[Rfam]
Nucleotides: 106
Stems, first nucleotide, its partner, number of pairs: 020092004026086001028084014048070004053065002
Number, partner (000 for none) and nucleotide at each position: 001000c002000a003000a004000c005000a006000g007000c008000c009000c010000u011000g012000c013000a014000g015000u016000g017000c018000u019000g020092c021091a022090u023089u024000c025000c026086g027000u028084g029083u030082a031081u032080u033079u034078g035077a036076c037075g038074a039073g040072c041071u042000g043000a044000g045000u046000u047000c048070g049069a050068c051067a052000c053065u054064c055000a056000g057000u058000g059000u060000g061000g062000c063000a064054g065053a066000g067051u068050g069049u070048c071041a072040g073039u074038u075037u076036g077035u078034c079033a080032a081031a082030u083029a084028u085000a086026c087000a088000a089023a090022g091021u092020g093000c094000g095000g096000c097000a098000u099000c100000u101000g102000c103000c104000c105000a106000g

The record is a 106-nucleotide RNA sequence from Varanus komodoensis, which matches "mir-223 microRNA precursor family" in Rfam. The family has 27 seed sequences and 674 matches in Rfam 15.1. The literature on the family includes a 2003 paper in Science by Lim et al., "Vertebrate microRNA genes". Lineage of the source: Eukaryota > Opisthokonta > Bifurcata > Paleoanguimorpha > Varanus.